RNA sequence: ACGCGGGCCACUUCGGUGUCCCGAACAGGAGAUAGACACCGUGCUCCGUGGAAGAUUCGGGGCACAUCGGGGCGUU
Numbered sequence: 001a002c003g004c005g006g007g008c009c010a011c012u013u014c015g016g017u018g019u020c021c022c023g024a025a026c027a028g029g030a031g032a033u034a035g036a037c038a039c040c041g042u043g044c045u046c047c048g049u050g051g052a053a054g055a056u057u058c059g060g061g062g063c064a065c066a067u068c069g070g071g072g073c074g075u076u
Stems, first nucleotide, its partner, number of pairs: 004023004009018003041065008
RNA: nrdJ RNA
Organism: Streptomyces oceani